[Rfam]
SAM riboswitch aptamer (S box leader): a 99-nucleotide sequence from Herpetosiphon aurantiacus. Gene Ontology term of the family: regulation of gene expression. The organism belongs to Herpetosiphon aurantiacus, within Bacteria.

RNA sequence: CUCUCAUCGAGAUGGGCAGAGGGACUGGCCCGACGAAGCCCGGCAACCCCAUUAUUUGGAAGGUGCCAAAUCCUGCAGGUUCGGCCUGAUAGAUGAGUU
Numbered sequence: 001c002u003c004u005c006a007u008c009g010a011g012a013u014g015g016g017c018a019g020a021g022g023g024a025c026u027g028g029c030c031c032g033a034c035g036a037a038g039c040c041c042g043g044c045a046a047c048c049c050c051a052u053u054a055u056u057u058g059g060a061a062g063g064u065g066c067c068a069a070a071u072c073c074u075g076c077a078g079g080u081u082c083g084g085c086c087u088g089a090u091a092g093a094u095g096a097g098u099u
Stems, first nucleotide, its partner, number of pairs: 003097006015040003021031003025075001027073002042067004047063002049059003071091001076088004
Dot-bracket structure: ..((((((......(((...(((.[.[[)))......))).((((.(((((.....)))..))))))...(]].]((((.....))))..)))))))..